[Rfam]
Rfam assigns this 73-nucleotide sequence from Ligilactobacillus ruminis to the family "HDV ribozyme from F. prausnitzii".

RNA sequence: GCUGCUUUAAUAAUCACACACCUUUAUGCGGUGAUUAGCAAGCAACGAUCUUAUGAUUGGUUAAGAUGUGAAA
Dot-bracket structure: ((((.((............(((.......))))).))))......(((((....)))))..............
Rfam's curators put it in the seed alignment. Rfam links the family to the GO term catalytic activity. Lineage of the source: Bacteria > Bacilli > Lactobacillales > Ligilactobacillus > Ligilactobacillus ruminis.